[Rfam]
Nucleotides: 112
Base pairs, nucleotide, nucleotide: 001077002076003075004074009039011038012037013036014035015034016033021031022030040064041063042062045060046059047058049055050054080101081100082099084097085096086095087094088093
Number, partner (000 for none) and nucleotide at each position: 001077g002076u003075u004074c005000a006000c007000g008000a009039g010000u011038c012037g013036u014035g015034g016033c017000u018000a019000u020000c021031g022030g023000u024000a025000c026000c027000u028000g029000g030022c031021c032000g033016g034015c035014c036013a037012c038011g039009c040064g041063g042062c043000a044000a045060c046059c047058c048000g049055u050054c051000a052000u053000c054050g055049a056000c057000c058047g059046g060045g061000u062042g063041c064040c065000c066000c067000a068000g069000g070000g071000a072000a073000a074004g075003a076002a077001c078000g079000g080101g081100c082099c083000c084097g085096c086095a087094c088093c089000a090000c091000g092000u093088g094087g095086u096085g097084c098000u099082g100081g101080c102000a103000a104000g105000a106000u107000u108000c109000g110000a111000u112000c

This 112-nucleotide sequence from Brevibacterium aurantiacum belongs to the Rfam family "SAM (S-adenosyl methionine) riboswitch aptamer". Rfam 15.1 lists 2,360 matches to the family in 1,305 species. About the family: SAM-IV is a mRNA element that regulates gene expression via direct sensing of S-adenosylmethionine (SAM or AdoMet). SAM-IV riboswitches share conserved nucleotide positions with the previously described SAM-I riboswitches sequence analysis and molecular recognition experiments suggest that SAM-I and SAM-IV riboswitches share similar ligand binding sites, but have different scaffolds.